[Rfam]
RNA sequence: CUGUAUGCGGGUGAUGGCGUCCACCCUUAACCGCCCGGCAAGGGCUGAUGACGCCUGUUUUCGG
Numbered sequence: 001c002u003g004u005a006u007g008c009g010g011g012u013g014a015u016g017g018c019g020u021c022c023a024c025c026c027u028u029a030a031c032c033g034c035c036c037g038g039c040a041a042g043g044g045c046u047g048a049u050g051a052c053g054c055c056u057g058u059u060u061u062c063g064g
Stems, first nucleotide, its partner, number of pairs: 010025004016055006033045004